The family of this 92-nucleotide RNA from Paenibacillus foliorum is "c-di-GMP-I riboswitch aptamer". The match comes from Rfam's covariance-model search (80 bits). Its family is annotated with cyclic-di-GMP binding in the Gene Ontology.
[Rfam]
RNA sequence: GAUCGUCCAAGGCAAACUUGCUGAAAAGCAAGGACGCAAAGCUUAGGGUCUAAGGUCCGCUACUUAAGGACUAUGAUAGCCUAGCCGCCGAU
Numbered sequence: 001g002a003u004c005g006u007c008c009a010a011g012g013c014a015a016a017c018u019u020g021c022u023g024a025a026a027a028g029c030a031a032g033g034a035c036g037c038a039a040a041g042c043u044u045a046g047g048g049u050c051u052a053a054g055g056u057c058c059g060c061u062a063c064u065u066a067a068g069g070a071c072u073a074u075g076a077u078a079g080c081c082u083a084g085c086c087g088c089c090g091a092u
Base pairs, nucleotide, nucleotide: 012037013036017032018031019030020029021028022027041085042084043083045082046081047080048077049076050075055071056070057069058068
Pairs were carried over by alignment from the consensus structure, which is taken from published work.